[Rfam]
RNA sequence: GGAUUCGGUGCCGCAGGCGAUCCCCGUCCAAGGAACCAGAGGGAGAAAGAACCGCACCAAGCCCCACCCCUCCCGCCCGUCGUUCGCACUCACUCGCGCGAGUGAACAUCGCCGGUUCGGCUGGAUCGGUGGUCCCCCAACUCCCCUACGCUCAGCGCAAACAACCGCAAACAUGCAUCGGCCCCCGGCCGGGAGUAGCAAUCCCGAUCGAGGGCCUGGCCACCGAGGAAGAAGAGAGCUUCCCG
Numbered sequence: 001g002g003a004u005u006c007g008g009u010g011c012c013g014c015a016g017g018c019g020a021u022c023c024c025c026g027u028c029c030a031a032g033g034a035a036c037c038a039g040a041g042g043g044a045g046a047a048a049g050a051a052c053c054g055c056a057c058c059a060a061g062c063c064c065c066a067c068c069c070c071u072c073c074c075g076c077c078c079g080u081c082g083u084u085c086g087c088a089c090u091c092a093c094u095c096g097c098g099c100g101a102g103u104g105a106a107c108a109u110c111g112c113c114g115g116u117u118c119g120g121c122u123g124g125a126u127c128g129g130u131g132g133u134c135c136c137c138c139a140a141c142u143c144c145c146c147u148a149c150g151c152u153c154a155g156c157g158c159a160a161a162c163a164a165c166c167g168c169a170a171a172c173a174u175g176c177a178u179c180g181g182c183c184c185c186c187g188g189c190c191g192g193g194a195g196u197a198g199c200a201a202u203c204c205c206g207a208u209c210g211a212g213g214g215c216c217u218g219g220c221c222a223c224c225g226a227g228g229a230a231g232a233a234g235a236g237a238g239c240u241u242c243c244c245g
Base pairs, nucleotide, nucleotide: 007224008223009222010221016077017076018075019074090105091104092103093102094101095100120156121155122154123153124152180216181215182214183213184212186210187209191205192204193203194202227243228242229241230240231239
RNA: Streptomyces sRNA 4677